This 132-nucleotide RNA sequence from Enterococcus columbae belongs to the Rfam family "Ribosomal protein L20 leader".
Rfam classes the family as a cis-regulatory leader.
Rfam describes the family as follows. This family is a putative r-protein leader autoregulatory structure found in B. subtilis and other low-GC Gram-positive bacteria. It is located in the 5' untranslated regions of mRNAs encoding initiation factor 3 followed by ribosomal proteins L35 and L20 (infC-rpmI-rplT). A Rho-independent transcription terminator structure that is probably involved in regulation is included at the 3' end.
The match comes from Rfam's covariance-model search (60 bits).
The family's consensus secondary structure was predicted with CMfinder.
The literature on the family includes a 1994 paper in Prog Nucleic Acid Res Mol Biol by Zengel and Lindahl, "Diverse mechanisms for regulating ribosomal protein synthesis in Escherichia coli".
NCBI's taxonomy places the organism under Bacteria, Bacilli, Enterococcaceae, Enterococcus, Enterococcus columbae.

[Rfam]
RNA sequence: AAAUGAAAGUAGAGGCACCCGCUUCUCGCCUAAGGGAUUUUGUCGCUGGGCAGAAUAUGACUAGAUCGCUAUUGUAUUUAGUAGCAAUCAGUAUGUGCGGGUUCAAGAAUGAACUCGUUUUUUUGUGUGUUU
Numbered sequence: 001a002a003a004u005g006a007a008a009g010u011a012g013a014g015g016c017a018c019c020c021g022c023u024u025c026u027c028g029c030c031u032a033a034g035g036g037a038u039u040u041u042g043u044c045g046c047u048g049g050g051c052a053g054a055a056u057a058u059g060a061c062u063a064g065a066u067c068g069c070u071a072u073u074g075u076a077u078u079u080a081g082u083a084g085c086a087a088u089c090a091g092u093a094u095g096u097g098c099g100g101g102u103u104c105a106a107g108a109a110u111g112a113a114c115u116c117g118u119u120u121u122u123u124u125g126u127g128u129g130u131u132u
Stems, first nucleotide, its partner, number of pairs: 011026006028051003034046001036044002097118009